[Rfam]
RNA sequence: GAGUCAGGGGUACUAGUGGAGUAGCCCGUCUAGUACCCCUAGGUUCUGGUGUCCAACCAGAUAUAGUAUUAAGGGCUUUUG
Numbered sequence: 001g002a003g004u005c006a007g008g009g010g011u012a013c014u015a016g017u018g019g020a021g022u023a024g025c026c027c028g029u030c031u032a033g034u035a036c037c038c039c040u041a042g043g044u045u046c047u048g049g050u051g052u053c054c055a056a057c058c059a060g061a062u063a064u065a066g067u068a069u070u071a072a073g074g075g076c077u078u079u080u081g
Stems, first nucleotide, its partner, number of pairs: 008038009023077005043064002046060002049058001

Description
The family of this 81-nucleotide RNA sequence from Betacoronavirus rousetti is "Coronavirus frameshifting stimulation element". NCBI's taxonomy places the organism under Viruses, Pisuviricota, Pisoniviricetes, Nidovirales, Betacoronavirus rousetti. The base pairs follow the family's consensus structure, which is taken from published work. The family's RNA type in Rfam is frameshift element. Its family is annotated with viral translational frameshifting in the Gene Ontology. Rfam's curators write: This family represents a conserved stem-loop found in Coronaviruses which can promote ribosomal frameshifting. This family interacts with a downstream region to form a pseudoknot structure, the region varies according to the virus but pseudoknot formation is known to stimulate frameshifting.